This 85-nucleotide RNA from Phtheirospermum japonicum belongs to the Rfam family "Small nucleolar RNA Z122".
RNA sequence: UUUGGGAAAUGAUGAUAAAUCGCGAUUCAGAGGCUACUGUUGCUCUGCUGAAUAUUAUUGAUUUGCACGUCAGUCUGAUCCCAAU
Number, nucleotide and partner (000 for none) at each position: 001u000002u084003u083004g082005g081006g080007a079008a000009a000010u000011g000012a000013u000014g000015a000016u000017a000018a000019a000020u000021c000022g000023c000024g000025a000026u000027u000028c000029a000030g000031a000032g000033g000034c000035u000036a000037c000038u000039g000040u000041u000042g000043c000044u000045c000046u000047g000048c000049u000050g000051a000052a000053u000054a000055u000056u000057a000058u000059u000060g000061a000062u000063u000064u000065g000066c000067a000068c000069g000070u000071c000072a000073g000074u000075c000076u000077g000078a000079u007080c006081c005082c004083a003084a002085u000
The family has 23 seed sequences and 822 matches in Rfam 15.1.
Gene Ontology terms of the family: nucleolus and RNA processing.